[Rfam]
RNA sequence: AAUAAAAUUAGAGCGCCAGGACCUUAGUCGUUAUUUUGAUUUAAGGUCGACGAGGAAGAGGGUUAUCGAAAGAUUCGGCGGAUCCCUCUCGGUGGCUUGUCACCGUAAGCUUGUUUAAAACCGAGGAGUAAUUCUCGGGACAAAGAGCAAGUUGACAAGACA
Numbered sequence: 001a002a003u004a005a006a007a008u009u010a011g012a013g014c015g016c017c018a019g020g021a022c023c024u025u026a027g028u029c030g031u032u033a034u035u036u037u038g039a040u041u042u043a044a045g046g047u048c049g050a051c052g053a054g055g056a057a058g059a060g061g062g063u064u065a066u067c068g069a070a071a072g073a074u075u076c077g078g079c080g081g082a083u084c085c086c087u088c089u090c091g092g093u094g095g096c097u098u099g100u101c102a103c104c105g106u107a108a109g110c111u112u113g114u115u116u117a118a119a120a121c122c123g124a125g126g127a128g129u130a131a132u133u134c135u136c137g138g139g140a141c142a143a144a145g146a147g148c149a150a151g152u153u154g155a156c157a158a159g160a161c162a
Base pairs, nucleotide, nucleotide: 020048021047022046023045024044025043026042027041057089058088059087060086061085066078067077068076069075090105091104092103093102094101109152110151111150112149113148114147121138122137123136124135125134126133127132
RNA: glmS glucosamine-6-phosphate activated ribozyme aptamer
Organism: Desulfosporosinus sp. Sb-LF